Overview
Eukaryotic large subunit ribosomal RNA: a 505-nucleotide part of an RNA from Tetrapisispora phaffii. Rfam links the family to the GO terms ribosome and structural constituent of ribosome. The family is grouped with related families in Rfam's "LSU clan".

Nucleotides: 505
Base pairs, nucleotide, nucleotide: 001471002470003469004468010465011464012463013462014461015460016459018457019456020455035059036058037057038056039055044049060228061227063225064224065223066222067221068220069217070216071215072214073213075206076205077204078203079202080201081200082199085179086178089175091173092172098166099165100164101163102161103160104159105158106157107156108155110153111152112151113150114149115148117146118145119144120143122141125138126137127136128135129134229233241450242449243448244447245446246445247444248442249441252266253265254264269305270304271303272302273301274300275299276298278294280292281291282290283289309436310435311434313367314366315365318364319363320360321359322358323357325356328355329354330353336347337346338345339344368386369385370384371383372382373381387391407423408422409421410420411419484501485500486499487498488497
Number, partner (000 for none) and nucleotide at each position: 001471u002470a003469g004468a005000a006000u007000a008000a009000u010465g011464u012463a013462g014461a015460u016459a017000a018457g019456g020455g021000a022000a023000g024000u025000c026000g027000g028000c029000a030000a031000a032000a033000u034000a035059g036058a037057u038056c039055c040000g041000u042000a043000a044049c045000u046000u047000c048000g049044g050000g051000a052000u053000a054000a055039g056038g057037a058036u059035u060228g061227g062000c063225u064224c065223u066222a067221a068220g069217g070216a071215u072214c073213g074000g075206g076205c077204a078203g079202u080201g081200a082199g083000g084000g085179c086178c087000u088000u089175u090000g091173u092172c093000a094000g095000a096000c097000g098166c099165u100164g101163c102161g103160g104159c105158g106157u107156g108155c109000g110153u111152g112151c113150g114149g115148g116000a117146c118145u119144g120143u121000g122141u123000u124000u125138g126137g127136g128135g129134g130000c131000u132000u133000g134129c135128u136127c137126c138125c139000u140000u141122g142000g143120a144119c145118g146117g147000a148115c149114c150113u151112g152111u153110g154000g155108g156107u157106g158105u159104g160103c161102c162000u163101g164100c165099g166098g167000u168000a169000g170000a171000c172092g173091g174000g175089a176000u177000u178086g179085g180000u181000a182000g183000g184000c185000c186000a187000u188000u189000u190000u191000g192000g193000c194000c195000g196000u197000c198000g199082c200081u201080u202079g203078c204077u205076g206075c207000g208000a209000u210000u211000a212000a213073c214072g215071a216070u217069c218000g219000a220068c221067u222066u223065a224064g225063a226000a227061c228060u229233g230000g231000u232000a233229c234000g235000g236000a237000c238000a239000a240000g241450g242449g243448g244447a245446a246445u247444c248442u249441g250000a251000c252266u253265g254264u255000c256000u257000a258000a259000u260000u261000a262000a263000a264254a265253c266252a267000u268000a269305g270304c271303a272302u273301u274300g275299c276298g277000a278294a279000g280292g281291u282290c283289a284000g285000a286000a287000a288000g289283u290282g291281a292280u293000g294278u295000u296000g297000a298276c299275g300274c301273a302272a303271u304270g305269u306000g307000a308000u309436u310435u311434c312000u313367g314366c315365c316000c317000a318364g319363u320360g321359c322358u323357c324000u325356g326000a327000a328355u329354g330353u331000c332000a333000a334000a335000g336347u337346g338345a339344a340000g341000a342000a343000a344339u345338u346337c347336a348000a349000c350000c351000a352000a353330g354329c355328g356325c357323g358322g359321g360320u361000a362000a363319a364318c365315g366314g367313c368386g369385g370384g371383a372382g373381u374000a375000a376000c377000u378000a379000u380000g381373a382372c383371u384370c385369u386368c387391u388000u389000a390000a391387g392000g393000u394000a395000g396000c397000c398000a399000a400000a401000u402000g403000c404000c405000u406000c407423g408422u409421c410420a411419u412000c413000u414000a415000a416000u417000u418000a419411g420410u421409g422408a423407c424000g425000c426000g427000c428000a429000u430000g431000a432000a433000u434311g435310g436309a437000u438000u439000a440000a441249c442248g443000a444247g445246a446245u447244u448243c449242c450241c451000a452000c453000u454000g455020u456019c457018c458000c459016u460015a461014u462013c463012u464011a465010c466000u467000a468004u469003c470002u471001a472000g473000c474000g475000a476000a477000a478000c479000c480000a481000c482000a483000g484501c485500c486499a487498a488497g489000g490000g491000a492000a493000c494000g495000g496000g497488c498487u499486u500485g501484g502000c503000g504000g505000a